[Rfam]
RNA sequence: GCCUGAUGAGGAAGAAAUCCCAAAAGAUAGGAAGUGCCGUAUGACACUCUUUACGCAGCGGCGGACUU
Numbered sequence: 001g002c003c004u005g006a007u008g009a010g011g012a013a014g015a016a017a018u019c020c021c022a023a024a025a026g027a028u029a030g031g032a033a034g035u036g037c038c039g040u041a042u043g044a045c046a047c048u049c050u051u052u053a054c055g056c057a058g059c060g061g062c063g064g065a066c067u068u
Stems, first nucleotide, its partner, number of pairs: 014062001031052003034047003
This 68-nucleotide RNA sequence from Eutrema salsugineum belongs to the Rfam family "Small nucleolar RNA U49". Its family is annotated with nucleolus and RNA processing in the Gene Ontology. The family's RNA type in Rfam is C/D-box small nucleolar RNA. Pairs were carried over by alignment from the consensus structure, which was predicted with CMfinder. The organism belongs to Eutrema, within Eukaryota.